[Rfam]
RNA sequence: CCCCCCGAAGUGUCUCGCAGGACAGCCCUGGGGGAGGCUGCCCGCGGGGUAGAGCACCGAUGGGGGAGCAAGGGGCCGAUGAGGCUCCACUCUCCUUUCGAACUCCGAAUCCGCGGGCACCGUAGAUCCCAGGAGUGGGGUACCGGGGGUAAGCUCCGGGACCGAGAGGGGAACAACCCAGACCGCGGGUUAAGGCCCCUAAGUGCCCGCUAAGUGACAAACCAAAGGGCGUCUCCAUCCUGAGACAGCGGGGCUGUAGGCUUAGAAGCAGCCAUCAGCUAAGAAGUGCGUAACAGCUUACCCGCCGAGGAUGGGGGCCCCGAAAAUUGACGGGUCUAAGCGGGCCGCCGAAACCCGGGCUCACUCACGCGCUGCGUGGGUGGGGGUAGGGGGGCGUAGCGGUUGGGUAGAAGCGGGGCCGUGAGGUCCCGUGGACCGGCCGCUAAUGUAGAU
Dot-bracket structure: ((((((....(((((....))))).(((((((...((..((((((((....(((....((.(((((((...((((((.....)))))).))))))).))...)).)....)))))))).))......)))))).)...(((.(((((.......))))).)))....(((......)))...((.(((((...(((......(.((((((................(((.((((((((((.......(((((.(((..(((.........)))..)))(...)(...((......)).).)))))...)))))))))))))..................))))))))))...)))))))(((((((((.......)))))))))....))))))(.((((((((((......((((((((....))))))))...))))))))))..).....